Shown here is a 97-nucleotide sequence from Amphiprion percula, a member of the family "Vault RNA". It scores 56 bits against the family's covariance model. The family's RNA type in Rfam is non-coding RNA gene. From the family's description: This family of RNAs are found as part of the enigmatic vault ribonucleoprotein complex. The complex consists of a major vault protein (MVP), two minor vault proteins (VPARP and TEP1), and several small untranslated RNA molecules. It has been suggested that the vault complex is involved in drug resistance.
[Rfam]
RNA sequence: GCAUCGGUUUAGCUCAAUGGUUUCUUCUUACCCAUGCAAUUUCCAUCCUGUGGACCGCGGGCCAGGGGUUCGAUCAUGGGCGCUGUCCGAUGUUUUU
Numbered sequence: 001g002c003a004u005c006g007g008u009u010u011a012g013c014u015c016a017a018u019g020g021u022u023u024c025u026u027c028u029u030a031c032c033c034a035u036g037c038a039a040u041u042u043c044c045a046u047c048c049u050g051u052g053g054a055c056c057g058c059g060g061g062c063c064a065g066g067g068g069u070u071c072g073a074u075c076a077u078g079g080g081c082g083c084u085g086u087c088c089g090a091u092g093u094u095u096u097u
Stems, first nucleotide, its partner, number of pairs: 002092006012081004017077004026073002